[Rfam]
RNA sequence: UCUGUUGCUGGGUCGCCUGUAGCAGA
Numbered sequence: 001u002c003u004g005u006u007g008c009u010g011g012g013u014c015g016c017c018u019g020u021a022g023c024a025g026a
Base pairs, nucleotide, nucleotide: 001026002025003024004023005022006021007020008019010017011016

A member of the RNA family "L25-Gammaproteobacteria ribosomal protein leader", 26 nucleotides long. By type it is a cis-regulatory leader. A reference for the family is Eckert and Weinberg (2020), "Discovery of 20 novel ribosomal leader candidates in bacteria and archaea", BMC Microbiol.